[Rfam]
RNA sequence: UAGACCAUACUUUAAGGAUCUCUUAACAGUGUGCGACAAACUAUCAAGUCGAAAACUUGAAUCAUAUUUAAGUAAGGAUGAUGAAUUGAAAUCGCUUGACCUGAGCGUGAAACGGUUAGUAUGACAGAUGUUCAAUCUUCAUAGCUAACGAUGAUGAUCGCCAGGAAAUGAGUAGGGCUCACUUCCACCGGUCAUGCGAUAGGCAAACUUACU
Numbered sequence: 001u002a003g004a005c006c007a008u009a010c011u012u013u014a015a016g017g018a019u020c021u022c023u024u025a026a027c028a029g030u031g032u033g034c035g036a037c038a039a040a041c042u043a044u045c046a047a048g049u050c051g052a053a054a055a056c057u058u059g060a061a062u063c064a065u066a067u068u069u070a071a072g073u074a075a076g077g078a079u080g081a082u083g084a085a086u087u088g089a090a091a092u093c094g095c096u097u098g099a100c101c102u103g104a105g106c107g108u109g110a111a112a113c114g115g116u117u118a119g120u121a122u123g124a125c126a127g128a129u130g131u132u133c134a135a136u137c138u139u140c141a142u143a144g145c146u147a148a149c150g151a152u153g154a155u156g157a158u159c160g161c162c163a164g165g166a167a168a169u170g171a172g173u174a175g176g177g178c179u180c181a182c183u184u185c186c187a188c189c190g191g192u193c194a195u196g197c198g199a200u201a202g203g204c205a206a207a208c209u210u211a212c213u
Base pairs, nucleotide, nucleotide: 001039003037006033008031009030010029011028017024018023043065044064046062049059051057072212073211074210075209076208091200092199093198094197095196097194098193099192100191101190105161106160107159115149116148117147120143121142122141123140124139165185166184167183170180
The record is a 213-nucleotide RNA sequence from Cavenderia fasciculata, which matches "ACEA small nucleolar RNA U3" in Rfam. Clan: U3 clan. For this family Rfam cites "The uRNA database" (Zwieb, Nucleic Acids Res, 1997). It scores 60 bits against the family's covariance model. By type it is a C/D-box small nucleolar RNA. Rfam links the family to the GO terms nucleolus and RNA processing. Small nucleolar RNAs (snoRNAs) are involved in the processing and modification of rRNA in the nucleolus. There are two main classes of snoRNAs: the box C/D class, and the box H/ACA class. U3 snoRNA is a member of the box C/D class. Indeed, the box C/D element is a subset of the six short sequence elements found in all U3 snoRNAs, namely boxes A, A', B, C, C', and D. The U3 snoRNA secondary structure is characterised by a small 5' domain (with boxes A and A'), and a larger 3' domain (with boxes B, C, C', and D), the two domains being linked by a single-stranded hinge. Boxes B and C form the B/C motif, which appears to be exclusive to U3 snoRNAs, and boxes C' and D form the C'/D motif. The latter is functionally similar to the C/D motifs found in other snoRNAs. The 5' domain and the hinge region act as a pre-rRNA-binding domain. The 3' domain has conserved protein-binding sites. Both the box B/C and box C'/D motifs are sufficient for nuclear retention of U3 snoRNA. The box C'/D motif is also necessary for nucleolar localisation, stability and hyper-methylation of U3 snoRNA. Both box B/C and C'/D motifs are involved in specific protein interactions and are necessary for the rRNA processing functions of U3 snoRNA.